Rfam assigns this 82-nucleotide sequence from Caenorhabditis japonica to the family "SmY spliceosomal RNA". On this family, see Maroney et al., RNA 1996: "Direct analysis of nematode cis- and trans-spliceosomes: a functional role for U5 snRNA in spliced leader addition trans-splicing and the identification of novel Sm snRNPs". Pairs were carried over by alignment from the consensus structure, which is taken from published work.
RNA sequence: GUCAAAUAAUAAUAAAUUACAGAGCCUUUAAGAAGACUCAAAGUACAAUUUUUGCAAACCCUGUCUUUUCCAAGUCAGGGUA
Numbered sequence: 001g002u003c004a005a006a007u008a009a010u011a012a013u014a015a016a017u018u019a020c021a022g023a024g025c026c027u028u029u030a031a032g033a034a035g036a037c038u039c040a041a042a043g044u045a046c047a048a049u050u051u052u053u054g055c056a057a058a059c060c061c062u063g064u065c066u067u068u069u070c071c072a073a074g075u076c077a078g079g080g081u082a
Stems, first nucleotide, its partner, number of pairs: 022039003026035003058081006065074003